[Rfam]
A member of the RNA family "U12 minor spliceosomal RNA" from Sciurus vulgaris, 148 nucleotides long. The literature on the family includes a 2002 paper in Mol Cell by Otake et al., "The divergent U12-type spliceosome is required for pre-mRNA splicing and is essential for development in Drosophila". The base pairs follow the family's consensus structure. NCBI's taxonomy places the organism under Eukaryota, Opisthokonta, Eumetazoa, Deuterostomia, Sciurus. A search with the family's covariance model found it, with a score of 86 bits. Rfam classes the family as a spliceosomal small nuclear RNA.

RNA sequence: UUGCCUUAACUUUAUGAGUAAGGAAAAUAAAGAUUCAGGGUGAUGGUGAUUCCUCAUUGCUAAUGUGAGAUUAAUUUUUGAGCUGGUAAAGAUUUCCCUAUAGUGACCUGCCUACUUUUCAGAAGGCCUGGGAGUCAGGAUCUGUCCA
Dot-bracket structure: ...(((((..........)))))........((.(((.........))).))(((((.......)))))..............(((...((((((..((...((...(((.........)))...))...)).....))))))..)))